[Rfam]
RNA sequence: UGCAGCCAUGUCAAAUUCAGUGCCUAGCCUACCGAUGACAGGCACUGACCCAAAAGGCUGCCAUAGAAAUACUGUGACUCAUGGGCCCUGUACCCCUUACCUGGGAUCAGGGAUAAAUUUGGUCACAUACACAA
Dot-bracket structure: .((((............((((((((..(........)..))))))))..........))))............((((((......(((((.................)))))........))))))........
RNA: Small nucleolar RNA SNORA5